Record summary
Shown here is a 114-nucleotide sequence from Jatropha curcas, a member of the family "small nucleolar RNA snoR126". Pairs were carried over by alignment from the consensus structure, which was predicted with RNAalifold. Gene Ontology terms of the family: RNA processing and nucleolus.
[Rfam]
RNA sequence: GGGCUGUGAUGACUGAUUACAUUUCUCGAUACUGAUCUAAUUUUGCUUUUCAUUAGGACCAACAAAGAAGCUGUUAUUAGUUUUGAUGACUGCGUUUGUGCGUGUCUGAGCCUU
Numbered sequence: 001g002g003g004c005u006g007u008g009a010u011g012a013c014u015g016a017u018u019a020c021a022u023u024u025c026u027c028g029a030u031a032c033u034g035a036u037c038u039a040a041u042u043u044u045g046c047u048u049u050u051c052a053u054u055a056g057g058a059c060c061a062a063c064a065a066a067g068a069a070g071c072u073g074u075u076a077u078u079a080g081u082u083u084u085g086a087u088g089a090c091u092g093c094g095u096u097u098g099u100g101c102g103u104g105u106c107u108g109a110g111c112c113u114u
Stems, first nucleotide, its partner, number of pairs: 001113004